This 113-nucleotide RNA sequence from Dissostichus mawsoni belongs to the Rfam family "Potassium channel RNA editing signal". Lineage of the source: Eukaryota > Teleostomi > Ctenosquamata > Notothenioidei > Dissostichus. Rfam classes the family as a cis-regulatory element.
RNA sequence: CUAGAUACGGAGACAUGGUACCAAAGACGAUCGCCGGGAAGAUCUUCGGCUCCAUCUGCUCCCUGAGCGGCGUGCUGGUGAUCGCCCUGCCUGUCCCCGUCAUCGUCUCCAAC
Numbered sequence: 001c002u003a004g005a006u007a008c009g010g011a012g013a014c015a016u017g018g019u020a021c022c023a024a025a026g027a028c029g030a031u032c033g034c035c036g037g038g039a040a041g042a043u044c045u046u047c048g049g050c051u052c053c054a055u056c057u058g059c060u061c062c063c064u065g066a067g068c069g070g071c072g073u074g075c076u077g078g079u080g081a082u083c084g085c086c087c088u089g090c091c092u093g094u095c096c097c098c099g100u101c102a103u104c105g106u107c108u109c110c111a112a113c
Base pairs, nucleotide, nucleotide: 002112004109007106008105009104010103012101013100014099017096018095020094021093036076037075039073048062049061
This family represents a group of sequences related to the human potassium channel Kv1.1 hairpin element which directs the efficient modification of an adenosine to inosine by an adenosine deaminase acting on RNA (ADAR). The ADAR modification causes an isoleucine/valine recoding event which lies in the ion-conducting pore of the potassium channel. It is thought that this editing event targets the process of fast inactivation and allows a more rapid recovery from inactivation at negative potentials.